Shown here is a 79-nucleotide RNA sequence, a member of the family "Flavo-1 RNA". It is annotated as a small RNA.

[Rfam]
RNA sequence: GUUUAGCCCUGAUUGAAGUGGAAAUCCUUUUUUUGAGUGAUAACUCAAAAAAAGAUUGCAACGAAAAGCAGGAAAAUGG
Numbered sequence: 001g002u003u004u005a006g007c008c009c010u011g012a013u014u015g016a017a018g019u020g021g022a023a024a025u026c027c028u029u030u031u032u033u034u035g036a037g038u039g040a041u042a043a044c045u046c047a048a049a050a051a052a053a054g055a056u057u058g059c060a061a062c063g064a065a066a067a068g069c070a071g072g073a074a075a076a077u078g079g
Base pairs, nucleotide, nucleotide: 009071010070011069013067014066018062019061023057024056025055026054029052030051031050032049033048034047035046036045037044038043